[Rfam]
RNA sequence: AGUUGGUCUGAUGGCAGUGGUGUUUACAACUAAUUGAUCACAACCAGUUACUUCUCUAAUCCCACUGCUUCACUUGACCAGCCUUUA
Numbered sequence: 001a002g003u004u005g006g007u008c009u010g011a012u013g014g015c016a017g018u019g020g021u022g023u024u025u026a027c028a029a030c031u032a033a034u035u036g037a038u039c040a041c042a043a044c045c046a047g048u049u050a051c052u053u054c055u056c057u058a059a060u061c062c063c064a065c066u067g068c069u070u071c072a073c074u075u076g077a078c079c080a081g082c083c084u085u086u087a
Base pairs, nucleotide, nucleotide: 002082003081004080005079006078007077008076010075011074014071016066017065018064019063020062022061028049029048030047
This 87-nucleotide RNA sequence from Prolemur simus belongs to the Rfam family "Y RNA". The organism belongs to Prolemur, within Eukaryota. Y RNAs are components of the Ro ribonucleoprotein particle (Ro RNP), in association with Ro60 and La proteins. For this family Rfam cites "Conserved features of Y RNAs: a comparison of experimentally derived secondary structures" (Teunissen et al., Nucleic Acids Res, 2000).